[Rfam]
Rfam assigns this 231-nucleotide sequence from Trifolium subterraneum to the family "MIR2655 microRNA precursor family". Taxonomically the source falls in Trifolium (Eukaryota, Embryophyta, Euphyllophyta, Trifolieae).
RNA sequence: CCCUUAUCUUUUAAAAGUUUCAAGUUGACCCCUUAUCUUUAUUUUAGGUUUCAAGUUGGUCCCUUCCGUCAAUUUUUUUACUAUUACCGUUAAAUUUGGACACGUGUCAUCUGACCAAGUGUGCCGCGUGUCCAAAUUUAACGGAAAUAGUUAACAUAUUGACGGAAGGGCCCAACUUGAAACCUAAAAUAAAGAUAAGGGACCAACUUGAAACUUUUAAAAGAUAAGGGA
Numbered sequence: 001c002c003c004u005u006a007u008c009u010u011u012u013a014a015a016a017g018u019u020u021c022a023a024g025u026u027g028a029c030c031c032c033u034u035a036u037c038u039u040u041a042u043u044u045u046a047g048g049u050u051u052c053a054a055g056u057u058g059g060u061c062c063c064u065u066c067c068g069u070c071a072a073u074u075u076u077u078u079u080a081c082u083a084u085u086a087c088c089g090u091u092a093a094a095u096u097u098g099g100a101c102a103c104g105u106g107u108c109a110u111c112u113g114a115c116c117a118a119g120u121g122u123g124c125c126g127c128g129u130g131u132c133c134a135a136a137u138u139u140a141a142c143g144g145a146a147a148u149a150g151u152u153a154a155c156a157u158a159u160u161g162a163c164g165g166a167a168g169g170g171c172c173c174a175a176c177u178u179g180a181a182a183c184c185u186a187a188a189a190u191a192a193a194g195a196u197a198a199g200g201g202a203c204c205a206a207c208u209u210g211a212a213a214c215u216u217u218u219a220a221a222a223g224a225u226a227a228g229g230g231a
Stems, first nucleotide, its partner, number of pairs: 002229007023208003027204001031200013045186003